RNA sequence: GUAGUCGGAUUCAUAUCAAUCCACAUGUGUUGAGGUGGAUUAAAGUCGAACUUCAACUAAAUUCCACACCAAUCCACACCAACACAUAUGGAUUGAAGUAAAUCCGACA
Numbered sequence: 001g002u003a004g005u006c007g008g009a010u011u012c013a014u015a016u017c018a019a020u021c022c023a024c025a026u027g028u029g030u031u032g033a034g035g036u037g038g039a040u041u042a043a044a045g046u047c048g049a050a051c052u053u054c055a056a057c058u059a060a061a062u063u064c065c066a067c068a069c070c071a072a073u074c075c076a077c078a079c080c081a082a083c084a085c086a087u088a089u090g091g092a093u094u095g096a097a098g099u100a101a102a103u104c105c106g107a108c109a
Stems, first nucleotide, its partner, number of pairs: 004108008013099002016096008025087008035077007045067002
A member of the RNA family "MIR5565 microRNA precursor family" from Sorghum bicolor, 109 nucleotides long.
It scores 100 bits against the family's covariance model.
The family's consensus secondary structure was predicted with RNAalifold.
Its family is annotated with RISC complex and miRNA-mediated post-transcriptional gene silencing in the Gene Ontology.